Bacterial large subunit ribosomal RNA: a 432-nucleotide part of an RNA. A reference for the family is Yusupov et al. (2001), "Crystal structure of the ribosome at 5.5 A resolution", Science. Its family is annotated with structural constituent of ribosome and ribosome in the Gene Ontology. A search with the family's covariance model found it, with a score of 2775 bits.

RNA sequence: CUCCCCGAAAUGCGUUUUGGCGCAGCGGUUGGUGCUUAAGCUUAGGGGUAAAGCACUGUUUCGGUGCGGGCUGUGAGAACGGUACCAAAUCGAGGCAAACUCUGAAUACUAAGUGUGUAGCCAACCAGUGAGACAGUGGGGGAUAAGCUUCAUUGUCAAAAGGGAAACAGCCCAGACCACCAGCUAAGGCCCCUAAAUAAUUGCUAAGUGAUAAAGGAAGUGGAAAUGUUUAGACAACCAGGAGGUUUGCUUAGAAGCAGCAAUCCUUUAAAGAGUGCGUAAUAGCUCACUGGUCUAAUGAUUCUGCGCCGAAAAUGAACGGGGCUAAGCAAUUUGCCGAAGCUGUGGGAUGUUAUUACAUCGGUAGGGGAGCGUUCUGUUAUAGAUUGAAGCACUAGCGUAAGCGGGUGUGGACUAAGCAGAAGUGAGAAU
Numbered sequence: 001c002u003c004c005c006c007g008a009a010a011u012g013c014g015u016u017u018u019g020g021c022g023c024a025g026c027g028g029u030u031g032g033u034g035c036u037u038a039a040g041c042u043u044a045g046g047g048g049u050a051a052a053g054c055a056c057u058g059u060u061u062c063g064g065u066g067c068g069g070g071c072u073g074u075g076a077g078a079a080c081g082g083u084a085c086c087a088a089a090u091c092g093a094g095g096c097a098a099a100c101u102c103u104g105a106a107u108a109c110u111a112a113g114u115g116u117g118u119a120g121c122c123a124a125c126c127a128g129u130g131a132g133a134c135a136g137u138g139g140g141g142g143a144u145a146a147g148c149u150u151c152a153u154u155g156u157c158a159a160a161a162g163g164g165a166a167a168c169a170g171c172c173c174a175g176a177c178c179a180c181c182a183g184c185u186a187a188g189g190c191c192c193c194u195a196a197a198u199a200a201u202u203g204c205u206a207a208g209u210g211a212u213a214a215a216g217g218a219a220g221u222g223g224a225a226a227u228g229u230u231u232a233g234a235c236a237a238c239c240a241g242g243a244g245g246u247u248u249g250c251u252u253a254g255a256a257g258c259a260g261c262a263a264u265c266c267u268u269u270a271a272a273g274a275g276u277g278c279g280u281a282a283u284a285g286c287u288c289a290c291u292g293g294u295c296u297a298a299u300g301a302u303u304c305u306g307c308g309c310c311g312a313a314a315a316u317g318a319a320c321g322g323g324g325c326u327a328a329g330c331a332a333u334u335u336g337c338c339g340a341a342g343c344u345g346u347g348g349g350a351u352g353u354u355a356u357u358a359c360a361u362c363g364g365u366a367g368g369g370g371a372g373c374g375u376u377c378u379g380u381u382a383u384a385g386a387u388u389g390a391a392g393c394a395c396u397a398g399c400g401u402a403a404g405c406g407g408g409u410g411u412g413g414a415c416u417a418a419g420c421a422g423a424a425g426u427g428a429g430a431a432u
Stems, first nucleotide, its partner, number of pairs: 001372006011024005026128001027126007036119001037117002040114006051103001052101002057097003061093004068086002070083005132157010162173003177348004182344003188338003197335001199334006216310002220307006227300003237294005243267003248262003268272001273288001277286002349362005373427001375424007383417003392411005398405002